[Rfam]
RNA sequence: CACGUUAGCGUGACCUGUUGACGUGGAAGGAAAUCACGCCCUCAUGCCCUCAAGGACUCGAUUUUCUUCCACGUCAGCAGGUCGCGCUGACGUGG
Numbered sequence: 001c002a003c004g005u006u007a008g009c010g011u012g013a014c015c016u017g018u019u020g021a022c023g024u025g026g027a028a029g030g031a032a033a034u035c036a037c038g039c040c041c042u043c044a045u046g047c048c049c050u051c052a053a054g055g056a057c058u059c060g061a062u063u064u065u066c067u068u069c070c071a072c073g074u075c076a077g078c079a080g081g082u083c084g085c086g087c088u089g090a091c092g093u094g095g
Stems, first nucleotide, its partner, number of pairs: 001094021023072013038057001040055002